[Rfam]
RNA sequence: AGGGUUUUAUUGUCCUCUUAAAUCGAAGGGU
Numbered sequence: 001a002g003g004g005u006u007u008u009a010u011u012g013u014c015c016u017c018u019u020a021a022a023u024c025g026a027a028g029g030g031u
Stems, first nucleotide, its partner, number of pairs: 001018004009031003013027001014025001